[Rfam]
RNA sequence: AUUUAGGUAAGGUGCUCUAUUUUGUGUAUUUUGCCAGAAUGAUUUAUCUUAUCCUUGGAG
Number, nucleotide and partner (000 for none) at each position: 001a000002u057003u000004u000005a000006g053007g052008u051009a050010a049011g048012g047013u000014g000015c000016u000017c000018u041019a040020u039021u038022u037023u036024g035025u000026g034027u000028a000029u000030u000031u000032u000033g000034c026035c024036a023037g022038a021039a020040u019041g018042a000043u000044u000045u000046a000047u012048c011049u010050u009051a008052u007053c006054c000055u000056u000057g002058g000059a000060g000
The record is a 60-nucleotide sequence from Sarcophilus harrisii, which matches "mir-7386 microRNA precursor family" in Rfam. The family's consensus secondary structure was predicted with RNAalifold. A search with the family's covariance model found it, with a score of 46 bits. Lineage of the source: Eukaryota > Craniata > Vertebrata > Mammalia > Sarcophilus.